[Rfam]
Nucleotides: 134
Stems, first nucleotide, its partner, number of pairs: 001057004005052004014046006021039003024035002071126001074123002081118002086113001088109006
Number, partner (000 for none) and nucleotide at each position: 001057g002056c003055a004054u005052g006051g007050u008049c009000a010000u011000g012000a013000u014046u015045u016044a017043u018042g019041g020000g021039g022038g023037g024035c025034c026000c027000u028000u029000c030000c031000c032000g033000u034025g035024g036000g037023c038022c039021u040000c041019u042018c043017a044016u045015a046014g047000u048000g049008g050007a051006c052005c053000c054004a055003u056002g057001c058000c059000a060000a061000g062000g063000g064000a065000a066000g067000u068000u069000g070000c071126a072000g073000c074123c075122u076000c077000a078000a079000a080000c081118c082117a083000u084000u085000g086113c087000c088109c089108a090107g091106c092105c093104u094000c095000c096000u097000c098000a099000c100000c101000c102000u103000u104093g105092g106091g107090c108089u109088g110000u111000g112000a113086g114000c115000a116000c117082u118081g119000u120000g121000c122075a123074g124000a125000a126071u127000a128000a129000a130000a131000a132000a133000a134000a